[Rfam]
RNA sequence: AAUUUUCUCAUUCAUUCCACAAUACACAAACACAUACGGCUGAAGAGGACCCUAAUUGGUCCUAAAACGGCCUGAGGUAGAGGGGUUUUAGUCGGUAGGUCCGAGGACUCCUUCCUCGGGAAUCCGACACUACCCAGUCGUACGGACGGCUGGGUGUCUUUUGAAGAUUUCCCCUCUUCCACGAAA
Numbered sequence: 001a002a003u004u005u006u007c008u009c010a011u012u013c014a015u016u017c018c019a020c021a022a023u024a025c026a027c028a029a030a031c032a033c034a035u036a037c038g039g040c041u042g043a044a045g046a047g048g049a050c051c052c053u054a055a056u057u058g059g060u061c062c063u064a065a066a067a068c069g070g071c072c073u074g075a076g077g078u079a080g081a082g083g084g085g086u087u088u089u090a091g092u093c094g095g096u097a098g099g100u101c102c103g104a105g106g107a108c109u110c111c112u113u114c115c116u117c118g119g120g121a122a123u124c125c126g127a128c129a130c131u132a133c134c135c136a137g138u139c140g141u142a143c144g145g146a147c148g149g150c151u152g153g154g155u156g157u158c159u160u161u162u163g164a165a166g167a168u169u170u171c172c173c174c175u176c177u178u179c180c181a182c183g184a185a186a
Base pairs, nucleotide, nucleotide: 056185057184059182060181076180077179079177080176082173083172084171091128092127093126094125095124100120101119102118103117104116105115106114107113130156132155133154134153135152136151
RNA: R2 RNA element
Organism: Agrilus planipennis